[Rfam]
RNA sequence: GUCAACUACUCACCACUUAAACUGCAUUAGCAUUUUUGAAGUGGGAGCUUGUGUAAACAAGCUUGGUUGAAUAGCUUAAGUCUUAACUGACUACGUUAUACAAAAAUAGAUAGUUACCUUGGGAUGCUCCACAAGUUCCAAGCUCUAAGGUUUAAUUUUAAACAUCUCUAAAGAGUAGGAGAAGUGAGUUAAAUUUAAAACUUUGUAUAACAUUAGCUAUGUGGACUUAC
Numbered sequence: 001g002u003c004a005a006c007u008a009c010u011c012a013c014c015a016c017u018u019a020a021a022c023u024g025c026a027u028u029a030g031c032a033u034u035u036u037u038g039a040a041g042u043g044g045g046a047g048c049u050u051g052u053g054u055a056a057a058c059a060a061g062c063u064u065g066g067u068u069g070a071a072u073a074g075c076u077u078a079a080g081u082c083u084u085a086a087c088u089g090a091c092u093a094c095g096u097u098a099u100a101c102a103a104a105a106a107u108a109g110a111u112a113g114u115u116a117c118c119u120u121g122g123g124a125u126g127c128u129c130c131a132c133a134a135g136u137u138c139c140a141a142g143c144u145c146u147a148a149g150g151u152u153u154a155a156u157u158u159u160a161a162a163c164a165u166c167u168c169u170a171a172a173g174a175g176u177a178g179g180a181g182a183a184g185u186g187a188g189u190u191a192a193a194u195u196u197a198a199a200a201c202u203u204u205g206u207a208u209a210a211c212a213u214u215a216g217c218u219a220u221g222u223g224g225a226c227u228u229a230c
Base pairs, nucleotide, nucleotide: 002070003069004068005067006066007065008064010047013044014043016041017040048061049060050059051058074217075216076215078213079092080091081090082089095211096210097209098208099207100206101205102204103203104202114148115147118142119141120140121139122138123137124136125135128225129224130223131222132221133220150194151193152192153191154190155189156188157187158186162185163184165182166181167180168179169178171176

The family of this 230-nucleotide sequence from Clostridium magnum is "HNH endonuclease-associated RNA and ORF (HEARO) RNA". Rfam 15.1 lists 952 matches to the family in 249 species. The match comes from Rfam's covariance-model search (137 bits). By type it is a non-coding RNA gene. The organism belongs to Clostridium magnum, within Bacteria. For this family Rfam cites "Exceptional structured noncoding RNAs revealed by bacterial metagenome analysis" (Weinberg et al., Nature, 2009).